[Rfam]
The record is a 111-nucleotide RNA sequence, which matches "COG3610-DE RNA" in Rfam.
RNA sequence: UACGAGUCGACAAAACGCGAGAUGCGUAUUUGGAUGAGGACACCAGCCUUAAUUGGCAGACACGGGAAGUGUUGGUGCUUGACCAACCUGAUGUGAACAGAAGUAGUCACC
Numbered sequence: 001u002a003c004g005a006g007u008c009g010a011c012a013a014a015a016c017g018c019g020a021g022a023u024g025c026g027u028a029u030u031u032g033g034a035u036g037a038g039g040a041c042a043c044c045a046g047c048c049u050u051a052a053u054u055g056g057c058a059g060a061c062a063c064g065g066g067a068a069g070u071g072u073u074g075g076u077g078c079u080u081g082a083c084c085a086a087c088c089u090g091a092u093g094u095g096a097a098c099a100g101a102a103g104u105a106g107u108c109a110c111c
Stems, first nucleotide, its partner, number of pairs: 006035003011032004015027004039079001041077004046057003059073005081108003088100002
By type it is a small RNA.